[Rfam]
Source information
Shown here is a 153-nucleotide RNA sequence from Alkalibacillus haloalkaliphilus, a member of the family "Ribosomal protein L20 leader".
RNA sequence: AAAGACAAGUAGAAGCACCCGCUUCUCACCUGAUUGACGCUUCUGGCAGUUGACAGGUCAGAUUAAUUUUCUAUUUAUACGUCAUGACUACGUAUAGAUUAAUGAAAUUAGUGUGUGUGGGUGCCGUAUGUGUACCGACACUUUUUUUGUGGU
Numbered sequence: 001a002a003a004g005a006c007a008a009g010u011a012g013a014a015g016c017a018c019c020c021g022c023u024u025c026u027c028a029c030c031u032g033a034u035u036g037a038c039g040c041u042u043c044u045g046g047c048a049g050u051u052g053a054c055a056g057g058u059c060a061g062a063u064u065a066a067u068u069u070u071c072u073a074u075u076u077a078u079a080c081g082u083c084a085u086g087a088c089u090a091c092g093u094a095u096a097g098a099u100u101a102a103u104g105a106a107a108u109u110a111g112u113g114u115g116u117g118u119g120g121g122u123g124c125c126g127u128a129u130g131u132g133u134a135c136c137g138a139c140a141c142u143u144u145u146u147u148u149g150u151g152g153u
Base pairs, nucleotide, nucleotide: 011026012025013024014023015022016021028058029057030056036051037050038049039047040046116140117139118138120136121135122134123133124132
By type it is a cis-regulatory leader. A reference for the family is Zengel and Lindahl (1994), "Diverse mechanisms for regulating ribosomal protein synthesis in Escherichia coli", Prog Nucleic Acid Res Mol Biol. The match comes from Rfam's covariance-model search (70 bits).